[Rfam]
RNA sequence: UUGACGUAAGCCGAAAAGUCAACAAUAGAGUAGGCA
Numbered sequence: 001u002u003g004a005c006g007u008a009a010g011c012c013g014a015a016a017a018g019u020c021a022a023c024a025a026u027a028g029a030g031u032a033g034g035c036a
Stems, first nucleotide, its partner, number of pairs: 002021004010035003